[Rfam]
RNA sequence: AUAUAAAUUAUAAAGUGCAUAUAGUGCAGAAAGUUAAGUGUCUUUCCUCUACAGCACUAUAUGCACUUUAUAAUUUAUAU
Numbered sequence: 001a002u003a004u005a006a007a008u009u010a011u012a013a014a015g016u017g018c019a020u021a022u023a024g025u026g027c028a029g030a031a032a033g034u035u036a037a038g039u040g041u042c043u044u045u046c047c048u049c050u051a052c053a054g055c056a057c058u059a060u061a062u063g064c065a066c067u068u069u070a071u072a073a074u075u076u077a078u079a080u
Base pairs, nucleotide, nucleotide: 004077005076006075007074009072010071011070013068014067015066016065017064018063019062020061021060022059023058024057025056026055027054032050033049
The record is an 80-nucleotide RNA from Geotrypetes seraphini, which matches "mir-17 microRNA precursor family" in Rfam. About the family: This family represents the microRNA (miRNA) precursor mir-17, family, which includes mir-20, mir-91, and mir-103. miRNAs are transcribed as ~70nt precursors (modelled here) and subsequently processed by the Dicer enzyme to give a ~22nt product. Rfam links the family to the GO terms RISC complex and miRNA-mediated post-transcriptional gene silencing. The base pairs follow the family's consensus structure, which was predicted with RNAalifold. A reference for the family is Lagos-Quintana et al. (2001), "Identification of novel genes coding for small expressed RNAs", Science.